Rfam assigns this 74-nucleotide sequence from Sphingobium subterraneum to the family "Makes More Granules Regulator RNA (mmgR)". Pairs were carried over by alignment from the consensus structure. The family has 87 seed sequences and 1,791 matches in Rfam 15.1.
[Rfam]
Nucleotides: 074
Base pairs, nucleotide, nucleotide: 008018009017010016011015038059039058040057041056042055043054044053045052046051
Number, partner (000 for none) and nucleotide at each position: 001000a002000g003000g004000a005000g006000g007000u008018g009017c010016c011015u012000u013000u014000c015011a016010g017009g018008c019000a020000u021000c022000c023000u024000c025000u026000c027000c028000u029000a030000a031000c032000u033000u034000u035000u036000a037000u038059g039058g040057g041056u042055c043054g044053a045052u046051c047000u048000u049000c050000g051046g052045a053044u054043c055042g056041g057040c058039c059038c060000u061000u062000u063000u064000u065000u066000u067000u068000g069000c070000c071000c072000g073000u074000g